[Rfam]
RNA sequence: GAGGAGUGGGACAAGCUAGUUCAGAACCCAUUUCUUGCCUUUUACCAGAGAUGGCCGUGGUUUGCCCACAAUACUCCUCUACUGAAUCUUUGGACCUUUCAAUCGACACAGUUGUCGAUUU
Dot-bracket structure: ..((((..((.(((((((.........((((((((...........))))))))...))))))).))......))))................(......((((((........)))))))